Rfam assigns this 53-nucleotide RNA sequence from Inquilinus limosus to the family "Whalefall-1 RNA". Rfam 15.1 lists 134 matches to the family in 26 species. It scores 42 bits against the family's covariance model. It is annotated as a small RNA. The base pairs follow the family's consensus structure, which is taken from published work.
RNA sequence: AUACCUCUCCUUGGGGAGAGGUCGGAACCGCGUUAGCGGUUCCGGGUGAGGGG
Numbered sequence: 001a002u003a004c005c006u007c008u009c010c011u012u013g014g015g016g017a018g019a020g021g022u023c024g025g026a027a028c029c030g031c032g033u034u035a036g037c038g039g040u041u042c043c044g045g046g047u048g049a050g051g052g053g
Base pairs, nucleotide, nucleotide: 004021005020006019007018008017009016010015024043025042026041027040028039029038030037031036